[Rfam]
RNA sequence: GGAUCGGGCCUUUCAGGCAUCCUCUCCUAAAAACUUUCACAGGCCGGGCCUUCCCGGCCUUUUUUUUGGUUUCGC
Numbered sequence: 001g002g003a004u005c006g007g008g009c010c011u012u013u014c015a016g017g018c019a020u021c022c023u024c025u026c027c028u029a030a031a032a033a034c035u036u037u038c039a040c041a042g043g044c045c046g047g048g049c050c051u052u053c054c055c056g057g058c059c060u061u062u063u064u065u066u067u068g069g070u071u072u073c074g075c
Stems, first nucleotide, its partner, number of pairs: 008018004041060008